The record is a 103-nucleotide RNA sequence from Otolemur garnettii, which matches "Y RNA" in Rfam. Pairs were carried over by alignment from the consensus structure, which is taken from published work. Lineage of the source: Eukaryota > Eumetazoa > Gnathostomata > Sarcopterygii > Otolemur. The match comes from Rfam's covariance-model search (51 bits).

RNA sequence: GGGUGGUCCAAAUGCAGUGGUAUUUACAACUAAUUAAUCACAACCAGUUACAGAGUCCUUUGUUUUUUUCUUCACUUGCACUGCUUCAUAUGACUAGCCUAAA
Numbered sequence: 001g002g003g004u005g006g007u008c009c010a011a012a013u014g015c016a017g018u019g020g021u022a023u024u025u026a027c028a029a030c031u032a033a034u035u036a037a038u039c040a041c042a043a044c045c046a047g048u049u050a051c052a053g054a055g056u057c058c059u060u061u062g063u064u065u066u067u068u069u070c071u072u073c074a075c076u077u078g079c080a081c082u083g084c085u086u087c088a089u090a091u092g093a094c095u096a097g098c099c100u101a102a103a
Stems, first nucleotide, its partner, number of pairs: 001099002004096005010091001014087001016082004022077001028064003032060002